[Rfam]
RNA sequence: GUAGAUAAUCGCAAUGCGCGGGGCCGUCACGGCGACGGGCGGCCUCAGGAAACUCCCCCUACUCGCAUGGGUCCCUCGGGGCGACCCGACGGGUAAAGCCGGAAGGGGACGUUGGUCCAAAUAGGGGCCUGUGAGGAACCAUGCGACGAGGCCCGGGUAGGACCUUAGACCAAUGCCACAGAAGGGGGGUUAUGAUUAUCUAC
Numbered sequence: 001g002u003a004g005a006u007a008a009u010c011g012c013a014a015u016g017c018g019c020g021g022g023g024c025c026g027u028c029a030c031g032g033c034g035a036c037g038g039g040c041g042g043c044c045u046c047a048g049g050a051a052a053c054u055c056c057c058c059c060u061a062c063u064c065g066c067a068u069g070g071g072u073c074c075c076u077c078g079g080g081g082c083g084a085c086c087c088g089a090c091g092g093g094u095a096a097a098g099c100c101g102g103a104a105g106g107g108g109a110c111g112u113u114g115g116u117c118c119a120a121a122u123a124g125g126g127g128c129c130u131g132u133g134a135g136g137a138a139c140c141a142u143g144c145g146a147c148g149a150g151g152c153c154c155g156g157g158u159a160g161g162a163c164c165u166u167a168g169a170c171c172a173a174u175g176c177c178a179c180a181g182a183a184g185g186g187g188g189g190u191u192a193u194g195a196u197u198a199u200c201u202a203c
Stems, first nucleotide, its partner, number of pairs: 001203009020046005026040003030037002059114001061112002071110005076089005090101002118161001125154005135147001
RNA: RNaseP truncated form
Organism: Thermocladium modestius